Annotation: A member of the RNA family "Archaeal large subunit ribosomal RNA" from Methanococcus voltae, 576 nucleotides of a longer RNA. The literature on the family includes a 2001 paper in Science by Yusupov et al., "Crystal structure of the ribosome at 5.5 A resolution". The organism belongs to Methanococcus voltae, within Archaea.
RNA sequence: CGUCCAGUGGGAAGCGAAGACCCCGUGGAGCUUUACUGCAGCCUGUCGUUGGGGCAUGAUUGUGGGUGUACAGUGUAGGUGGGAGCCAUCGAAACUUUUUCGCCAGGAAAAGUGGAGGCAUCCAUGGGACACCACCCUCCUAUGAUUAUGUCCCUAACCCUUAUAGGGGACACCGGUAGGUGGGCAGUUUGGCUGGGGCGGUACCCUCCUAAAAAUGCAUCAGGAGGGCCCAAAGGUUGGCUCAAGCGGGUCAGGACUCCGCUGUUGAGUGUAAGGGCAAAAGCCAGCCUGACUUUGUUGCCAACAAAACGCAACGAAGAGACGAAAGUCGGGCCUAACGAACCUCUGUGCCUCACCGAUGGGGGCCAGAGAUGACAAAAAAGCUACCCCGGGGAUAACAGAGUUGUCGCGGGCAAGAGCCCAUAUCGACCCCGCGGCUUGCUACCUCGAUGUCGGUUUUUCCCAUCCUGGGUCUGCAGCAGGACCCAAGGGUGGGGCUGUUCGCCCAUUAAAGGGGAUCAUGAGCUGGGUUUAGACCGUCGUGAGACAGGUUGGUUGCUAUCUGCUGGAUGUGUU
Dot-bracket structure: ((((((((.(((.((......((((.(((((((.((((...(((((((..((((((((((((((((.(.........(((((..(((.........(((((....)))))......)))............)))))).))))))))))))))))...((((...)))).....)))))))....))))..((((.....))).)((((((...........))))))..((....((((((((.((((((.......))))))...))((......))....))))))....(((((((((.........))))))))).(.(....).).))..........(((((.(((((.......)))))))))).........)))))..))))))........(((.((((((((...((.......))...)))))))..))))..........(((((((((((..((..(((((......)))))....))..((((.....))))......)))))..)..)))).).....(((((((....))).))))....))..)))))))))))....
Numbered sequence: 001c002g003u004c005c006a007g008u009g010g011g012a013a014g015c016g017a018a019g020a021c022c023c024c025g026u027g028g029a030g031c032u033u034u035a036c037u038g039c040a041g042c043c044u045g046u047c048g049u050u051g052g053g054g055c056a057u058g059a060u061u062g063u064g065g066g067u068g069u070a071c072a073g074u075g076u077a078g079g080u081g082g083g084a085g086c087c088a089u090c091g092a093a094a095c096u097u098u099u100u101c102g103c104c105a106g107g108a109a110a111a112g113u114g115g116a117g118g119c120a121u122c123c124a125u126g127g128g129a130c131a132c133c134a135c136c137c138u139c140c141u142a143u144g145a146u147u148a149u150g151u152c153c154c155u156a157a158c159c160c161u162u163a164u165a166g167g168g169g170a171c172a173c174c175g176g177u178a179g180g181u182g183g184g185c186a187g188u189u190u191g192g193c194u195g196g197g198g199c200g201g202u203a204c205c206c207u208c209c210u211a212a213a214a215a216u217g218c219a220u221c222a223g224g225a226g227g228g229c230c231c232a233a234a235g236g237u238u239g240g241c242u243c244a245a246g247c248g249g250g251u252c253a254g255g256a257c258u259c260c261g262c263u264g265u266u267g268a269g270u271g272u273a274a275g276g277g278c279a280a281a282a283g284c285c286a287g288c289c290u291g292a293c294u295u296u297g298u299u300g301c302c303a304a305c306a307a308a309a310c311g312c313a314a315c316g317a318a319g320a321g322a323c324g325a326a327a328g329u330c331g332g333g334c335c336u337a338a339c340g341a342a343c344c345u346c347u348g349u350g351c352c353u354c355a356c357c358g359a360u361g362g363g364g365g366c367c368a369g370a371g372a373u374g375a376c377a378a379a380a381a382a383g384c385u386a387c388c389c390c391g392g393g394g395a396u397a398a399c400a401g402a403g404u405u406g407u408c409g410c411g412g413g414c415a416a417g418a419g420c421c422c423a424u425a426u427c428g429a430c431c432c433c434g435c436g437g438c439u440u441g442c443u444a445c446c447u448c449g450a451u452g453u454c455g456g457u458u459u460u461u462c463c464c465a466u467c468c469u470g471g472g473u474c475u476g477c478a479g480c481a482g483g484a485c486c487c488a489a490g491g492g493u494g495g496g497g498c499u500g501u502u503c504g505c506c507c508a509u510u511a512a513a514g515g516g517g518a519u520c521a522u523g524a525g526c527u528g529g530g531u532u533u534a535g536a537c538c539g540u541c542g543u544g545a546g547a548c549a550g551g552u553u554g555g556u557u558g559c560u561a562u563c564u565g566c567u568g569g570a571u572g573u574g575u576u
Stems, first nucleotide, its partner, number of pairs: 001572008010564003014559002022393004027389002029385005035188004042180007051154016068137001078136005085119003097110005158168004191204001192202003205227006230333002236288006242268002245263006269278002293319009321330001323328001344371005350366005402443003406440001407437007417427002454529001455527004459521001460518005467492002471486005495507004535553004539548003